[Rfam]
RNA sequence: CUUGCGGGACGACCUGCAAGCGCGUCAUGUUGAACGGGGACGGCCCCA
Numbered sequence: 001c002u003u004g005c006g007g008g009a010c011g012a013c014c015u016g017c018a019a020g021c022g023c024g025u026c027a028u029g030u031u032g033a034a035c036g037g038g039g040a041c042g043g044c045c046c047c048a
Stems, first nucleotide, its partner, number of pairs: 001020008036047004

A member of the RNA family "Guanidine-II riboswitch aptamer (mini-ykkC)" from Cronobacter sakazakii, 48 nucleotides long.